Shown here is a 239-nucleotide RNA, a member of the family "sRNA regulator of biofilms A". It is annotated as a small RNA. Important for biofilm formation and pathogenicity. Bacterial strain with deleted SrbA had reduced biofilm mass. As the ability to form biofilms can contribute to the ability a pathogen to thrive within the host, the C. elegans hosts infected with the srbA deleted strain displayed significantly lower mortality rate than the wild-type strain. However, the deletion of srbA had no effect on growth or antibiotic resistance in P. aeruginosa. The literature on the family includes a 2017 paper in PLoS One by Taylor et al., "A novel small RNA is important for biofilm formation and pathogenicity in Pseudomonas aeruginosa".

[Rfam]
RNA sequence: GCCAGGGGCUCUGUUGCAGAGCCUCCAGACCGAUCCCGUAACACCAUUCGGGGCGGUCCGUGUUCUAACAGCCCACAAGGCGUUUCGACGAGGUUGCGACUGGAACGAAAGUUGUCCUGAGGGACGGGGAAGCCUAAGCGUUAUCAGCCAGACCGCCUGACCAGAACCUGCAUCGCCCAACGGUAUCCACGAGCCGGCAAGCCGCAAACCCUGUUCUUUCGGACUGUCUUGUUUCGUCC
Numbered sequence: 001g002c003c004a005g006g007g008g009c010u011c012u013g014u015u016g017c018a019g020a021g022c023c024u025c026c027a028g029a030c031c032g033a034u035c036c037c038g039u040a041a042c043a044c045c046a047u048u049c050g051g052g053g054c055g056g057u058c059c060g061u062g063u064u065c066u067a068a069c070a071g072c073c074c075a076c077a078a079g080g081c082g083u084u085u086c087g088a089c090g091a092g093g094u095u096g097c098g099a100c101u102g103g104a105a106c107g108a109a110a111g112u113u114g115u116c117c118u119g120a121g122g123g124a125c126g127g128g129g130a131a132g133c134c135u136a137a138g139c140g141u142u143a144u145c146a147g148c149c150a151g152a153c154c155g156c157c158u159g160a161c162c163a164g165a166a167c168c169u170g171c172a173u174c175g176c177c178c179a180a181c182g183g184u185a186u187c188c189a190c191g192a193g194c195c196g197g198c199a200a201g202c203c204g205c206a207a208a209c210c211c212u213g214u215u216c217u218u219u220c221g222g223a224c225u226g227u228c229u230u231g232u233u234u235c236g237u238c239c
Stems, first nucleotide, its partner, number of pairs: 005025008029057004035052003040047001059155002062153003071081003083140001088135001090133001117129002164169001174204001175202002181196004213228001216226001